[Rfam]
RNA sequence: GGCUGUCUAAAUCCGUGCUGAGAUUUCGUCAGACACCGACCCACCAAGGGUGAUGAAACUUCCAAGAUAAGUGAAGGG
Numbered sequence: 001g002g003c004u005g006u007c008u009a010a011a012u013c014c015g016u017g018c019u020g021a022g023a024u025u026u027c028g029u030c031a032g033a034c035a036c037c038g039a040c041c042c043a044c045c046a047a048g049g050g051u052g053a054u055g056a057a058a059c060u061u062c063c064a065a066g067a068u069a070a071g072u073g074a075a076g077g078g
Base pairs, nucleotide, nucleotide: 003076004075006073008071011068012067013066016064017063020061021060022059024058025057026056027055028054029053030052
Record summary: This 78-nucleotide sequence from Schistosoma japonicum belongs to the Rfam family "mir-3492 microRNA precursor family". The source organism's lineage runs through Eukaryota, Protostomia, Schistosomatoidea, Schistosomatidae and Schistosoma. It scores 50 bits against the family's covariance model. The family's consensus secondary structure was predicted with RNAalifold.